RNA sequence: UCAGACAAAGGCAAACCCGCCGGAAGGUGGGGACGCAAAGCCAGGGGCCCUCGCGGGGGCGGCCCAGCUACCGAGA
Numbered sequence: 001u002c003a004g005a006c007a008a009a010g011g012c013a014a015a016c017c018c019g020c021c022g023g024a025a026g027g028u029g030g031g032g033a034c035g036c037a038a039a040g041c042c043a044g045g046g047g048c049c050c051u052c053g054c055g056g057g058g059g060c061g062g063c064c065c066a067g068c069u070a071c072c073g074a075g076a
Stems, first nucleotide, its partner, number of pairs: 001076001004072001011036002016031006034062001039069003044065003047060003
RNA: c-di-GMP-I-GGC riboswitch aptamer